[Rfam]
RNA sequence: AUAGGGAGAGGGAGAUGAUAGAUGCUAUUUAUAUAGAUUUUUGUUACUGGUGUCUCCCGUUGAUGGAUUCAGAGGAAUAGCAAUUUCUGGGCGAGAUAUCGUUAGAGUCGCCGUUUCCUCGAUUGGCGAUUGGAGUGUUGCUCGUCAACAU
Numbered sequence: 001a002u003a004g005g006g007a008g009a010g011g012g013a014g015a016u017g018a019u020a021g022a023u024g025c026u027a028u029u030u031a032u033a034u035a036g037a038u039u040u041u042u043g044u045u046a047c048u049g050g051u052g053u054c055u056c057c058c059g060u061u062g063a064u065g066g067a068u069u070c071a072g073a074g075g076a077a078u079a080g081c082a083a084u085u086u087c088u089g090g091g092c093g094a095g096a097u098a099u100c101g102u103u104a105g106a107g108u109c110g111c112c113g114u115u116u117c118c119u120c121g122a123u124u125g126g127c128g129a130u131u132g133g134a135g136u137g138u139u140g141c142u143c144g145u146c147a148a149c150a151u
Base pairs, nucleotide, nucleotide: 007061008060010058011057012056013055014054015053016052017051090146092144093143094142095141099134100133107130108129109128110127111126112125113124115122116121

Shown here is a 151-nucleotide RNA from Protea cynaroides, a member of the family "Small nucleolar RNA snoR111".
Rfam classes the family as an H/ACA-box small nucleolar RNA.
The base pairs follow the family's consensus structure, which was predicted with WAR.
The literature on the family includes a 2002 paper in Curr Biol by Marker et al., "Experimental RNomics: identification of 140 candidates for small non-messenger RNAs in the plant Arabidopsis thaliana".
The family has 6 seed sequences and 533 matches in Rfam 15.1.